RNA sequence: GCACUGGUUUAGCUCAGUGGUUACUUCCCUCCUCAUAUCUUCCUGAAAGAUUACGCGGUCUCCAUCCCUCCCCGGGAUCAAACCACGGGCGCUGUCCAGUGUUUUC
Numbered sequence: 001g002c003a004c005u006g007g008u009u010u011a012g013c014u015c016a017g018u019g020g021u022u023a024c025u026u027c028c029c030u031c032c033u034c035a036u037a038u039c040u041u042c043c044u045g046a047a048a049g050a051u052u053a054c055g056c057g058g059u060c061u062c063c064a065u066c067c068c069u070c071c072c073c074g075g076g077a078u079c080a081a082a083c084c085a086c087g088g089g090c091g092c093u094g095u096c097c098a099g100u101g102u103u104u105u106c
Stems, first nucleotide, its partner, number of pairs: 002101006012090004017086004026077004
A member of the RNA family "Vault RNA" from Sparus aurata, 106 nucleotides long. The base pairs follow the family's consensus structure, which is taken from published work. NCBI's taxonomy places the organism under Eukaryota, Metazoa, Deuterostomia, Neoteleostei, Sparus. The match comes from Rfam's covariance-model search (59 bits). The literature on the family includes a 2009 paper in Mol Biol Evol by Stadler et al., "Evolution of Vault RNAs".